[Rfam]
Overview:
Shown here is a 58-nucleotide RNA sequence, a member of the family "Hepatitis C virus stem-loop SL8001 RNA".

RNA sequence: CAUUCCAGGAAGGCCAUAUCCCACAUCAACUCCGUGUGGCGAGACCUCCUGGAAGACA
Numbered sequence: 001c002a003u004u005c006c007a008g009g010a011a012g013g014c015c016a017u018a019u020c021c022c023a024c025a026u027c028a029a030c031u032c033c034g035u036g037u038g039g040c041g042a043g044a045c046c047u048c049c050u051g052g053a054a055g056a057c058a
Stems, first nucleotide, its partner, number of pairs: 004053007012045001014043001021039006
Rfam describes the family as follows. Even though Hepatitis C virus (HCV) SL8001 is not required for overall replication, conformational changes in this motif tune the initial rate of replication.